The record is a 49-nucleotide RNA sequence from Thalassovita taeanensis, which matches "SAM/SAH riboswitch aptamer" in Rfam.
RNA sequence: CCCCUGCCACAACGGCUUCCUGACGUGGCGGGCAGAACCCACUGGAGCA
Numbered sequence: 001c002c003c004c005u006g007c008c009a010c011a012a013c014g015g016c017u018u019c020c021u022g023a024c025g026u027g028g029c030g031g032g033c034a035g036a037a038c039c040c041a042c043u044g045g046a047g048c049a
Stems, first nucleotide, its partner, number of pairs: 004031007013022002015048003019045002
The literature on the family includes a 2019 paper in Nucleic Acids Res by Weickhmann et al., "The structure of the SAM/SAH-binding riboswitch".
The organism belongs to Thalassovita, within Bacteria.